[Rfam]
RNA: Small Cajal body specific RNA 16
Organism: Rattus norvegicus
RNA sequence: ACGGUCUGGGGAAAGGCUCCUGUGUGGUUGACCCUGCCCUAGGUGGGUGCAGCCCUGUACCAGACAGCCCGACCUUGACCUAAAGUAAAUUCCCGGAGGAGCAUCCUCCCCGGGGUUUGAAUUUGCAGUAACAGGUGUGAGCAUCUUAGCAGUUUGGUGGUCAUGUAUGAUACUGCAAACAGGA
Numbered sequence: 001a002c003g004g005u006c007u008g009g010g011g012a013a014a015g016g017c018u019c020c021u022g023u024g025u026g027g028u029u030g031a032c033c034c035u036g037c038c039c040u041a042g043g044u045g046g047g048u049g050c051a052g053c054c055c056u057g058u059a060c061c062a063g064a065c066a067g068c069c070c071g072a073c074c075u076u077g078a079c080c081u082a083a084a085g086u087a088a089a090u091u092c093c094c095g096g097a098g099g100a101g102c103a104u105c106c107u108c109c110c111c112g113g114g115g116u117u118u119g120a121a122u123u124u125g126c127a128g129u130a131a132c133a134g135g136u137g138u139g140a141g142c143a144u145c146u147u148a149g150c151a152g153u154u155u156g157g158u159g160g161u162c163a164u165g166u167a168u169g170a171u172a173c174u175g176c177a178a179a180c181a182g183g184a
Stems, first nucleotide, its partner, number of pairs: 003080004008075003015069004020063003024060002026054005033047002092114003095110002098107002122179009132169002138163003142159004148154002